A member of the RNA family "Small nucleolar RNA SNORA27" from Rhinolophus ferrumequinum, 127 nucleotides long. ACA27 is a member of the H/ACA class of snoRNA that guide the sites of modification of uridines to pseudouridines.
[Rfam]
Nucleotides: 127
Stems, first nucleotide, its partner, number of pairs: 028059002034057003041050003069120006082105001083103001085101006
Number, partner (000 for none) and nucleotide at each position: 001000a002000u003000u004000c005000c006000a007000c008000u009000u010000u011000a012000g013000u014000c015000a016000u017000u018000a019000a020000u021000c022000a023000u024000u025000g026000u027000a028059u029058g030000a031000c032000c033000u034057u035056c036055u037000u038000u039000a040000c041050u042049g043048g044000u045000c046000a047000u048043u049042c050041a051000a052000g053000u054000g055036a056035g057034g058029c059028a060000a061000a062000g063000g064000g065000a066000a067000u068000a069120u070119c071118u072117u073116u074115u075000u076000a077000a078000a079000a080000c081000u082105c083103a084000a085101g086100c087099a088098a089097a090096c091000u092000g093000g094000g095000u096090g097089u098088u099087u100086g101085c102000c103083u104000u105082g106000u107000a108000u109000u110000c111000u112000g113000u114000c115074a116073g117072a118071a119070g120069a121000a122000a123000c124000a125000a126000a127000u

Annotation: A search with the family's covariance model found it, with a score of 99 bits. Rfam 15.1 lists 819 matches to the family in 543 species. The source organism's lineage runs through Eukaryota, Bilateria, Vertebrata, Rhinolophinae and Rhinolophus.